The family of this 102-nucleotide RNA sequence from Pontibacillus yanchengensis is "Purine riboswitch aptamer". Pairs were carried over by alignment from the consensus structure, which is taken from published work. It scores 77 bits against the family's covariance model.
[Rfam]
RNA sequence: AAUAUUAUUACAAAAUCCCGACGUAUAAUCUUGGAGAUAUGGUCCAUAAGUUUCUACCAAACUACCGUAAAUGGUUUGACUACGAGAGGGGUUUGAGACCUG
Numbered sequence: 001a002a003u004a005u006u007a008u009u010a011c012a013a014a015a016u017c018c019c020g021a022c023g024u025a026u027a028a029u030c031u032u033g034g035a036g037a038u039a040u041g042g043u044c045c046a047u048a049a050g051u052u053u054c055u056a057c058c059a060a061a062c063u064a065c066c067g068u069a070a071a072u073g074g075u076u077u078g079a080c081u082a083c084g085a086g087a088g089g090g091g092u093u094u095g096a097g098a099c100c101u102g
Base pairs, nucleotide, nucleotide: 018088022084023083024082025081029049032046033045034044035043058078059077060076061075062074063073064072
The organism belongs to Pontibacillus yanchengensis, within Bacteria.